[Rfam]
RNA sequence: AGCCACUGAUGUAAUUGAUUCUGCCAAAUGAGUUCCUGUGAUAUCACCCUUUUCCGUUCCACUUCUGUCUGAGGCU
Numbered sequence: 001a002g003c004c005a006c007u008g009a010u011g012u013a014a015u016u017g018a019u020u021c022u023g024c025c026a027a028a029u030g031a032g033u034u035c036c037u038g039u040g041a042u043a044u045c046a047c048c049c050u051u052u053u054c055c056g057u058u059c060c061a062c063u064u065c066u067g068u069c070u071g072a073g074g075c076u
Stems, first nucleotide, its partner, number of pairs: 001076004
A member of the RNA family "Small nucleolar RNA SNORD47" from Spizella passerina, 76 nucleotides long. A reference for the family is Galardi et al. (2002), "Purified box C/D snoRNPs are able to reproduce site-specific 2'-O-methylation of target RNA in vitro", Mol Cell Biol. The match comes from Rfam's covariance-model search (64 bits). The source organism's lineage runs through Eukaryota, Bilateria, Craniata, Sarcopterygii and Spizella. The base pairs follow the family's consensus structure, which was predicted with ILM.